Rfam assigns this 135-nucleotide sequence from Astyanax mexicanus to the family "Small nucleolar RNA SNORA68". Rfam 15.1 lists 1,079 matches to the family in 643 species. About the family: U68 is a member of the H/ACA class of small nucleolar RNAs (snoRNAs) which act as guides in the the modification of uridines to pseudouridines. A search with the family's covariance model found it, with a score of 87 bits. Rfam links the family to the GO terms nucleolus and RNA processing. A reference for the family is Ganot et al. (1997), "The family of box ACA small nucleolar RNAs is defined by an evolutionarily conserved secondary structure and ubiquitous sequence elements essential for RNA accumulation", Genes Dev. Lineage of the source: Eukaryota > Craniata > Gnathostomata > Characiphysae > Astyanax.
[Rfam]
RNA sequence: UUUGCACACAAACCCAAAGAUCAUUAUGUUCAUGUGUAAUGAUCUUGCUAUGUGUGCGCAAAGGAAAAAAAGAACCUUGUCGCCUUCCAUAAGCUUGUACUGUGCCAAUGGAAGUGAAUUCAAGGUUCAACACCG
Numbered sequence: 001u002u003u004g005c006a007c008a009c010a011a012a013c014c015c016a017a018a019g020a021u022c023a024u025u026a027u028g029u030u031c032a033u034g035u036g037u038a039a040u041g042a043u044c045u046u047g048c049u050a051u052g053u054g055u056g057c058g059c060a061a062a063g064g065a066a067a068a069a070a071a072g073a074a075c076c077u078u079g080u081c082g083c084c085u086u087c088c089a090u091a092a093g094c095u096u097g098u099a100c101u102g103u104g105c106c107a108a109u110g111g112a113a114g115u116g117a118a119u120u121c122a123a124g125g126u127u128c129a130a131c132a133c134c135g
Stems, first nucleotide, its partner, number of pairs: 003058007019044010072128007084114007093105002